A member of the RNA family "S10-Clostridia ribosomal protein leader" from Anaerosolibacter carboniphilus, 82 nucleotides long. It is annotated as a cis-regulatory leader. The source organism's lineage runs through Bacteria, Bacillati, Bacillota, Clostridia and Anaerosolibacter. The match comes from Rfam's covariance-model search (40 bits). Pairs were carried over by alignment from the consensus structure, which is taken from published work.
[Rfam]
RNA sequence: GGACUGCGAUGAAGUAGAAGGUUGCCAGGGGUAACCUGGGGAAAUUUCUACCGAGAAUGUCCGUUCAAGAAUCGGGCGACAG
Numbered sequence: 001g002g003a004c005u006g007c008g009a010u011g012a013a014g015u016a017g018a019a020g021g022u023u024g025c026c027a028g029g030g031g032u033a034a035c036c037u038g039g040g041g042a043a044a045u046u047u048c049u050a051c052c053g054a055g056a057a058u059g060u061c062c063g064u065u066c067a068a069g070a071a072u073c074g075g076g077c078g079a080c081a082g
Stems, first nucleotide, its partner, number of pairs: 014051003019047003025039005058081004063077004